The family of this 70-nucleotide RNA from Pseudomonas japonica is "DUF805 RNA".
The family's RNA type in Rfam is cis-regulatory element.
The base pairs follow the family's consensus structure, which is taken from published work.
Clan: DUF805 clan.
The source organism's lineage runs through Bacteria, Pseudomonadota, Pseudomonadales, Pseudomonadaceae and Pseudomonas.
[Rfam]
RNA sequence: CGAACAUGGAUGCCGGAAACCAUUGAAAUAGACGGGGCGCAGUCCGAAAAGCCAGACGAGUAGGAACAUU
Numbered sequence: 001c002g003a004a005c006a007u008g009g010a011u012g013c014c015g016g017a018a019a020c021c022a023u024u025g026a027a028a029u030a031g032a033c034g035g036g037g038c039g040c041a042g043u044c045c046g047a048a049a050a051g052c053c054a055g056a057c058g059a060g061u062a063g064g065a066a067c068a069u070u
Stems, first nucleotide, its partner, number of pairs: 006023004036053003043064002